A member of the RNA family "Burkholderia RNA 11" from Comamonas aquatica, 122 nucleotides long. It is annotated as a small RNA. Pairs were carried over by alignment from the consensus structure, which was predicted with RNAfold. A reference for the family is Ramos et al. (2013), "Experimental identification of small non-coding regulatory RNAs in the opportunistic human pathogen Burkholderia cenocepacia J2315", Genomics.

RNA sequence: CCAACCUGCGGCUGGCGCGCACCGAUGGCCUGGUGUUCCGGGCCGUGCUGGGCAUCAGCUGGAUGUGGUUCUUCGGGGCCGUGUUCCUGGCGGAAUUCCCGGUGCUGGCCAAGGAGGUGCUG
Number, nucleotide and partner (000 for none) at each position: 001c000002c000003a000004a000005c000006c000007u000008g000009c000010g049011g048012c047013u000014g044015g043016c000017g000018c040019g039020c000021a037022c000023c035024g034025a000026u032027g000028g000029c000030c000031u000032g026033g000034u024035g023036u000037u021038c000039c019040g018041g000042g000043c015044c014045g000046u000047g012048c011049u010050g000051g121052g120053c119054a118055u117056c000057a000058g000059c113060u112061g000062g110063a000064u104065g103066u000067g099068g098069u000070u000071c000072u094073u000074c092075g091076g000077g000078g088079c000080c000081g086082u000083g000084u000085u000086c081087c000088u078089g000090g000091c075092g074093g000094a072095a000096u000097u000098c068099c067100c000101g000102g000103u065104g064105c000106u000107g000108g000109c000110c062111a000112a060113g059114g000115a000116g000117g055118u054119g053120c052121u051122g000